[Rfam]
RNA sequence: AUGUAAACUAGGCAAACUUUGGGAAACUGAAGGACGCAAAGCUAAAGGGCCUUUAAACUGGCAGCCUAGCCGCAAAU
Numbered sequence: 001a002u003g004u005a006a007a008c009u010a011g012g013c014a015a016a017c018u019u020u021g022g023g024a025a026a027c028u029g030a031a032g033g034a035c036g037c038a039a040a041g042c043u044a045a046a047g048g049g050c051c052u053u054u055a056a057a058c059u060g061g062c063a064g065c066c067u068a069g070c071c072g073c074a075a076a077u
Stems, first nucleotide, its partner, number of pairs: 012037002017032006041070003046067003049062003